[Rfam]
RNA sequence: CAAUUGCAUCAGGAAUCCCAAAUGGGUACCAACCGAGAGAACAUACUCCACGGUGGUAAAACGAUGCGGACCGGAAGGUCAAAAUAAAAGUAAUCUAC
Numbered sequence: 001c002a003a004u005u006g007c008a009u010c011a012g013g014a015a016u017c018c019c020a021a022a023u024g025g026g027u028a029c030c031a032a033c034c035g036a037g038a039g040a041a042c043a044u045a046c047u048c049c050a051c052g053g054u055g056g057u058a059a060a061a062c063g064a065u066g067c068g069g070a071c072c073g074g075a076a077g078g079u080c081a082a083a084a085u086a087a088a089a090g091u092a093a094u095c096u097a098c
Stems, first nucleotide, its partner, number of pairs: 006067005015027001017026003028057003033053003037048002043091002069080004

SAM-I/IV (S-adenosyl methionine) riboswitch aptamer: a 98-nucleotide RNA sequence.
It is one of the family's seed sequences.
Gene Ontology terms of the family: S-adenosylmethionine metabolic process and regulation of gene expression.